A member of the RNA family "M-box riboswitch aptamer (ykoK leader)" from Clostridium thermosuccinogenes, 157 nucleotides long. The match comes from Rfam's covariance-model search (99 bits).

[Rfam]
RNA sequence: UACAAAAUCCGGUAGGCAAGGCUACCACAGGGAUACGGACUGCUGCCGCGAAGUAGUGGAGACACGACGAGAUGGUAAGCAGGUUAUGUCGAAGCACAAGGCAUAGCCUAAUGCAGUUUCAUCGCCCUGUGAUGCUAAAGCUCAAACGGUGCUGCAU
Numbered sequence: 001u002a003c004a005a006a007a008u009c010c011g012g013u014a015g016g017c018a019a020g021g022c023u024a025c026c027a028c029a030g031g032g033a034u035a036c037g038g039a040c041u042g043c044u045g046c047c048g049c050g051a052a053g054u055a056g057u058g059g060a061g062a063c064a065c066g067a068c069g070a071g072a073u074g075g076u077a078a079g080c081a082g083g084u085u086a087u088g089u090c091g092a093a094g095c096a097c098a099a100g101g102c103a104u105a106g107c108c109u110a111a112u113g114c115a116g117u118u119u120c121a122u123c124g125c126c127c128u129g130u131g132a133u134g135c136u137a138a139a140g141c142u143c144a145a146a147c148g149g150u151g152c153u154g155c156a157u
Stems, first nucleotide, its partner, number of pairs: 006153001008151001011147001013099001015142003020136003026131007039117005045076004056065003082108004088102003

Rfam's curators write: M-box riboswitch, also know as ykoK leader is described as a metaloregulatory RNA that sense divalent metals and function as a genetic control element of genes related to divalent metal transport in bacteria. It was first reported upstream of the B.subtilis ykoK gene and genes with related functions in other bacteria. Rfam links the family to the GO terms regulation of gene expression and response to magnesium ion.